[Rfam]
RNA sequence: UAUCAAAAUGAUACGAGUAACCUGCGUUCAGGUUCGAGCCGAGCGAAGCGAGACAGCAACGCGCAGCGUUGACCCGAAGGGCGAGGCCAGAGGCCGAGUAAUCCCGCUCGACCCACCA
Numbered sequence: 001u002a003u004c005a006a007a008a009u010g011a012u013a014c015g016a017g018u019a020a021c022c023u024g025c026g027u028u029c030a031g032g033u034u035c036g037a038g039c040c041g042a043g044c045g046a047a048g049c050g051a052g053a054c055a056g057c058a059a060c061g062c063g064c065a066g067c068g069u070u071g072a073c074c075c076g077a078a079g080g081g082c083g084a085g086g087c088c089a090g091a092g093g094c095c096g097a098g099u100a101a102u103c104c105c106g107c108u109c110g111a112c113c114c115a116c117c118a
Stems, first nucleotide, its partner, number of pairs: 015109003018101001025083002028081002033078004040050002057071006